[Rfam]
TPP riboswitch aptamer (THI element): a 102-nucleotide RNA from Enterococcus phoeniculicola. The source organism's lineage runs through Bacteria, Bacillota, Lactobacillales, Enterococcus and Enterococcus phoeniculicola. Vitamin B(1) in its active form thiamin pyrophosphate (TPP) is an essential coenzyme that is synthesised by coupling of pyrimidine and thiazole moieties in bacteria.

RNA sequence: AGCAGUUACUAGGGGAGUCUUUUUUUGACUGAGAUGUUCAUACGAACGGACCCUUUGAACCUGUAAGUUGAGACUUGCGUAGGGAAGUAGUCUAAAAAUCAU
Numbered sequence: 001a002g003c004a005g006u007u008a009c010u011a012g013g014g015g016a017g018u019c020u021u022u023u024u025u026u027g028a029c030u031g032a033g034a035u036g037u038u039c040a041u042a043c044g045a046a047c048g049g050a051c052c053c054u055u056u057g058a059a060c061c062u063g064u065a066a067g068u069u070g071a072g073a074c075u076u077g078c079g080u081a082g083g084g085a086a087g088u089a090g091u092c093u094a095a096a097a098a099u100c101a102u
Stems, first nucleotide, its partner, number of pairs: 006090005011054004017029003036047004060083004064077004